[Rfam]
RNA: Pyrobac-1 RNA
RNA sequence: ACUGCCGGGACUACGCCGGGCAAGGCCGGCGCCGUGCCGCGCUGUGACCCCGGCGGGGCGCCU
Dot-bracket structure: ..........(..(((((((......((((.....)))).........)))))))).......